[Rfam]
RNA sequence: CGGAAGAGAAAGGCAACCGCUUUUUGUACCUUAACUAAGGUAGAUUAAGAGGAAAGUCUGGACUUCAUAAGAAAAGAUACUGGAGAAACUCCAGGGGCCGUAAGGCUACGGAAAGUGCAACAGAAAACAUUCCGCUAUAAAAGGGUCUUUUUAUAGACAGGCUGAAAAUUCCUAUUUUAAGAAUAGGAGCUAUUAAGGUGACUUAGUAGACAUGCAAACCCUAUCUGAAGCAAGAGAAAAAGUUUUUGUUUCUGCAUAAUGAGAGGGAGGGUAUCCCUCAUGAACUUUUUCAUAAUCGCUUGAGGGAUAUAGUAAUAUAUCCCCUAGAUGAAUGGUUGCCCUCAAGAUGAGUUUUCUCAUCUUGUAGACAGAAUCCAGCUUACCCUCUCUUCCGAUAU
Numbered sequence: 001c002g003g004a005a006g007a008g009a010a011a012g013g014c015a016a017c018c019g020c021u022u023u024u025u026g027u028a029c030c031u032u033a034a035c036u037a038a039g040g041u042a043g044a045u046u047a048a049g050a051g052g053a054a055a056g057u058c059u060g061g062a063c064u065u066c067a068u069a070a071g072a073a074a075a076g077a078u079a080c081u082g083g084a085g086a087a088a089c090u091c092c093a094g095g096g097g098c099c100g101u102a103a104g105g106c107u108a109c110g111g112a113a114a115g116u117g118c119a120a121c122a123g124a125a126a127a128c129a130u131u132c133c134g135c136u137a138u139a140a141a142a143g144g145g146u147c148u149u150u151u152u153a154u155a156g157a158c159a160g161g162c163u164g165a166a167a168a169u170u171c172c173u174a175u176u177u178u179a180a181g182a183a184u185a186g187g188a189g190c191u192a193u194u195a196a197g198g199u200g201a202c203u204u205a206g207u208a209g210a211c212a213u214g215c216a217a218a219c220c221c222u223a224u225c226u227g228a229a230g231c232a233a234g235a236g237a238a239a240a241a242g243u244u245u246u247u248g249u250u251u252c253u254g255c256a257u258a259a260u261g262a263g264a265g266g267g268a269g270g271g272u273a274u275c276c277c278u279c280a281u282g283a284a285c286u287u288u289u290u291c292a293u294a295a296u297c298g299c300u301u302g303a304g305g306g307a308u309a310u311a312g313u314a315a316u317a318u319a320u321c322c323c324c325u326a327g328a329u330g331a332a333u334g335g336u337u338g339c340c341c342u343c344a345a346g347a348u349g350a351g352u353u354u355u356c357u358c359a360u361c362u363u364g365u366a367g368a369c370a371g372a373a374u375c376c377a378g379c380u381u382a383c384c385c386u387c388u389c390u391u392c393c394g395a396u397a398u
Stems, first nucleotide, its partner, number of pairs: 001394009012340007020049003025044001027042005054381003058378005063230004071274001073272001075226005080094005095109001096107004110221002115219002117215003132161002135156008170188005189211001190209008234297002239288006267279004304323008
Bacterial RNase P class A: a 398-nucleotide RNA sequence from Chlamydia abortus. Taxonomically the source falls in Chlamydia abortus (Bacteria, Chlamydiota, Chlamydiales, Chlamydia).